[Rfam]
RNA sequence: CGCCCGGCCCGGAUCCCGUGGGGGGAAUCCGACCGGGGAAAUGGGAAGCGCCCCGUAUCGUCGAC
Numbered sequence: 001c002g003c004c005c006g007g008c009c010c011g012g013a014u015c016c017c018g019u020g021g022g023g024g025g026a027a028u029c030c031g032a033c034c035g036g037g038g039a040a041a042u043g044g045g046a047a048g049c050g051c052c053c054c055g056u057a058u059c060g061u062c063g064a065c
Base pairs, nucleotide, nucleotide: 001063002062003038004037005036007034010031011030012029013028014027015025016024017023043053044052045051
RNA: Streptomyces RNA 2736
Organism: Streptomyces beijiangensis